Description: U7 small nuclear RNA: a 61-nucleotide RNA sequence from Aotus nancymaae. Lineage of the source: Eukaryota > Metazoa > Dipnotetrapodomorpha > Mammalia > Aotus.

RNA sequence: UAAUGUUACCACUCUUAGAAUUUUAUCUAGCAGGUUUUCCAGUCUUUACUGGGAAGCUCCU
Numbered sequence: 001u002a003a004u005g006u007u008a009c010c011a012c013u014c015u016u017a018g019a020a021u022u023u024u025a026u027c028u029a030g031c032a033g034g035u036u037u038u039c040c041a042g043u044c045u046u047u048a049c050u051g052g053g054a055a056g057c058u059c060c061u
Base pairs, nucleotide, nucleotide: 033058034057035056036055037054038053039052040051041050042049043048

The family has 49 seed sequences and 10,439 matches in Rfam 15.1. The family's consensus secondary structure was predicted with PFOLD.